[Rfam]
RNA: Eukaryotic large subunit ribosomal RNA, nucleotides 1943 to 2467
RNA sequence: GGUAGUAGCAAAUAUUCAAGUGAGAACCUUGAAGGCUGAAGUGGAGCAAGGUUCCAUGUGAACAGCAGUUGGACAUGGGUCAGUCGAUCCUAAGAAAACGGCGAAAGCUUGUUCGAAUUUGCGACAUGAAUUGUAAGACUGUGUGUGUUUAUUGUGUGUGCAGUUGUCGUAUGUUUUCGAAAGGGAAUCCGGUUGAUAUUCCGGAACCGAGUAACGGAGACAAAGAGUAGCGCUUUAAUCUCUCUGUGGGGUUGGCGUUCAACUCAAUCGCGCGGUAACGCAAGCGAACUCGGAAAAUGACCGUCGUGAGUUUCGAAAAGAGUUUUCUUUUCUUUUUAAGGGACGCAUUCCCUGGAACCGGGUUGUCCGGAGAUAGGGAUUCUGGUAUCCAUAAAACGCCGACUUUUUCACGGUGUUCGGAGCGCUCUCGUCGGUACGUGAAAAUCCGAGCGACGCCUGGUAAAUCUCGUACUUGGUCGUACUGAUAUCCGCAGCAGGUCUCCAAGGUGAAUAGCCUCUGGCCGA
Number, nucleotide and partner (000 for none) at each position: 001g000002g000003u000004a000005g000006u000007a000008g000009c000010a000011a000012a000013u000014a000015u033016u032017c031018a030019a029020g028021u000022g000023a000024g000025a000026a000027c000028c020029u019030u018031g017032a016033a015034g523035g522036c521037u520038g000039a000040a000041g000042u000043g503044g502045a501046g500047c000048a000049a483050g482051g000052u000053u000054c078055c077056a076057u075058g074059u073060g000061a000062a000063c071064a070065g000066c000067a000068g000069u000070u064071g063072g000073a059074c058075a057076u056077g055078g054079g000080u000081c000082a000083g000084u000085c479086g478087a477088u000089c184090c183091u000092a000093a000094g178095a177096a112097a000098a110099c000100g109101g108102c107103g000104a000105a000106a000107g102108c101109u100110u098111g000112u096113u000114c000115g000116a000117a000118u000119u000120u169121g168122c000123g000124a000125c000126a000127u000128g000129a000130a000131u000132u000133g000134u000135a000136a000137g000138a000139c000140u000141g000142u000143g000144u000145g000146u000147g000148u000149u000150u000151a000152u000153u000154g000155u000156g000157u000158g000159u000160g000161c000162a000163g000164u000165u000166g000167u000168c121169g120170u000171a000172u000173g000174u000175u000176u000177u095178c094179g000180a000181a000182a000183g090184g089185g000186a000187a000188u205189c204190c203191g202192g201193u000194u000195g000196a000197u000198a000199u000200u000201c192202c191203g190204g189205a188206a000207c000208c475209g474210a473211g472212u000213a000214a000215c000216g000217g000218a000219g000220a000221c000222a000223a000224a000225g000226a000227g000228u000229a000230g000231c000232g000233c000234u000235u000236u000237a000238a000239u000240c000241u000242c000243u000244c000245u000246g000247u000248g000249g000250g000251g000252u000253u000254g000255g000256c000257g000258u000259u000260c469261a000262a467263c000264u464265c000266a000267a000268u000269c000270g000271c000272g281273c280274g279275g000276u000277a000278a000279c274280g273281c272282a000283a000284g000285c000286g000287a000288a000289c450290u449291c448292g447293g446294a445295a000296a000297a000298u000299g000300a435301c434302c433303g432304u000305c430306g429307u000308g427309a426310g425311u424312u000313u420314c419315g418316a336317a335318a334319a333320g332321a331322g000323u000324u000325u000326u000327c000328u000329u000330u000331u321332c320333u319334u318335u317336u316337u000338a000339a000340g390341g389342g388343a386344c385345g000346c000347a000348u000349u379350c378351c377352c376353u375354g374355g000356a000357a000358c370359c369360g368361g367362g000363u000364u000365g000366u000367c361368c360369g359370g358371a000372g000373a000374u354375a353376g352377g351378g350379a349380u000381u000382c000383u000384g000385g344386u343387a000388u342389c341390c340391a000392u000393a000394a000395a000396a000397c415398g414399c413400c412401g411402a000403c000404u000405u000406u000407u000408u000409c000410a000411c401412g400413g399414u398415g397416u000417u000418c315419g314420g313421a000422g000423c000424g311425c310426u309427c308428u000429c306430g305431u000432c303433g302434g301435u300436a000437c000438g000439u000440g000441a000442a000443a000444a000445u294446c293447c292448g291449a290450g289451c000452g000453a000454c000455g000456c000457c000458u000459g000460g000461u000462a000463a000464a264465u000466c000467u262468c000469g260470u000471a000472c211473u210474u209475g208476g000477u087478c086479g085480u000481a000482c050483u049484g000485a000486u000487a000488u000489c498490c497491g000492c000493a000494g000495c000496a000497g490498g489499u000500c046501u045502c044503c043504a000505a517506g516507g515508u514509g000510a000511a000512u000513a000514g508515c507516c506517u505518c000519u000520g037521g036522c035523c034524g000525a000